Yersinia sRNA 155(RyfD): a 140-nucleotide RNA sequence from Rahnella aceris.
On this family, see Righetti et al., Proc Natl Acad Sci U S A 2016: "Temperature-responsive in vitro RNA structurome of Yersinia pseudotuberculosis".
By type it is a small RNA.
The base pairs follow the family's consensus structure.
Nucleotides: 140
Stems, first nucleotide, its partner, number of pairs: 002138011015126005021120003025045002028042002032039001054069005070081001072079002084117010
Number, partner (000 for none) and nucleotide at each position: 001000c002138a003137a004136g005135a006134c007133g008132a009131u010130c011129c012128a013000u014000c015126a016125c017124g018123c019122a020000u021120a022119a023118c024000a025045g026044c027000u028042g029041u030000c031000c032039u033000c034000u035000g036000a037000a038000u039032a040000u041029a042028c043000u044026g045025c046000c047000a048000a049000g050000a051000u052000a053000a054069c055068c056067u057066u058065g059000a060000a061000a062000a063000c064000g065058u066057g067056a068055g069054g070081g071000u072079u073078g074000a075000c076000c077000u078073c079072a080000u081070c082000u083000a084117a085116u086115c087114u088113c089112c090111a091110g092109u093108a094000g095000c096000a097000a098000u099000u100000u101000u102000g103000u104000u105000c106000a107000g108093u109092a110091u111090u112089g113088g114087a115086g116085g117084u118023g119022u120021u121000a122019u123018g124017c125016g126015u127000c128012u129011g130010g131009a132008u133007c134006g135005u136004c137003u138002u139000a140000c